[Rfam]
RNA sequence: CAGAAUGCUUCCAAGGGCUAUGGCUUGUUGUGGCCACGGGAUCUCCAACUGCAUGCAGGAGACACCUGGAGAGACUUUGACAGCUCAGGUUACAACAACACCUGUAGCUGCCACUCACCUUUCCUAUAAUA
Dot-bracket structure: ..........((...(((((((......)))))))..))............................((((((.........((.((((...........)))).....)).......)))))).......
Numbered sequence: 001c002a003g004a005a006u007g008c009u010u011c012c013a014a015g016g017g018c019u020a021u022g023g024c025u026u027g028u029u030g031u032g033g034c035c036a037c038g039g040g041a042u043c044u045c046c047a048a049c050u051g052c053a054u055g056c057a058g059g060a061g062a063c064a065c066c067u068g069g070a071g072a073g074a075c076u077u078u079g080a081c082a083g084c085u086c087a088g089g090u091u092a093c094a095a096c097a098a099c100a101c102c103u104g105u106a107g108c109u110g111c112c113a114c115u116c117a118c119c120u121u122u123c124c125u126a127u128a129a130u131a
Stems, first nucleotide, its partner, number of pairs: 011039002016035007068124006083111002086104004
The family of this 131-nucleotide RNA from Castor canadensis is "Small nucleolar RNA SNORA44". For this family Rfam cites "RNomics: an experimental approach that identifies 201 candidates for novel, small, non-messenger RNAs in mouse" (Huttenhofer et al., EMBO J, 2001). A search with the family's covariance model found it, with a score of 141 bits. ACA44 is a member of the H/ACA class of snoRNA that guide the sites of modification of uridines to pseudouridines. Lineage of the source: Eukaryota > Craniata > Vertebrata > Glires > Castor. Its Rfam clan is "SNORA44 clan".